This 108-nucleotide sequence from Rhododendron simsii belongs to the Rfam family "Small nucleolar RNA snoR100". Rfam links the family to the GO terms RNA processing and nucleolus. Rfam classes the family as an H/ACA-box small nucleolar RNA. On this family, see Marker et al., Curr Biol 2002: "Experimental RNomics: identification of 140 candidates for small non-messenger RNAs in the plant Arabidopsis thaliana". The base pairs follow the family's consensus structure, which was predicted with WAR. The source organism's lineage runs through Eukaryota, Spermatophyta, asterids, Rhodoreae and Rhododendron.
RNA sequence: CAAUGAAGGAAGCAUGGUAAUGUACACAUAAAUUGAUUUGGGUCUCUAGGUAUCCUCUCUUUGAUGCCAUUUGGCUUUGAUUUGGGGGCACGGUUCCACAACAAAAUA
Numbered sequence: 001c002a003a004u005g006a007a008g009g010a011a012g013c014a015u016g017g018u019a020a021u022g023u024a025c026a027c028a029u030a031a032a033u034u035g036a037u038u039u040g041g042g043u044c045u046c047u048a049g050g051u052a053u054c055c056u057c058u059c060u061u062u063g064a065u066g067c068c069a070u071u072u073g074g075c076u077u078u079g080a081u082u083u084g085g086g087g088g089c090a091c092g093g094u095u096c097c098a099c100a101a102c103a104a105a106a107u108a
Stems, first nucleotide, its partner, number of pairs: 012025001014023002040091001042089003050081002055074002
Dot-bracket structure: ...........(.((......)).)..............(.(((.....((...((................)).....)).....))).).................